[Rfam]
RNA sequence: GAAGUGCGAACCAAGACGCGGCGACAACCGCGUAAGACUUGGAGCGGGCGACCGUAAGGGUGCCCUGCA
Numbered sequence: 001g002a003a004g005u006g007c008g009a010a011c012c013a014a015g016a017c018g019c020g021g022c023g024a025c026a027a028c029c030g031c032g033u034a035a036g037a038c039u040u041g042g043a044g045c046g047g048g049c050g051a052c053c054g055u056a057a058g059g060g061u062g063c064c065c066u067g068c069a
Stems, first nucleotide, its partner, number of pairs: 011042005018031004046065005052059002
RNA: Transposase-2 RNA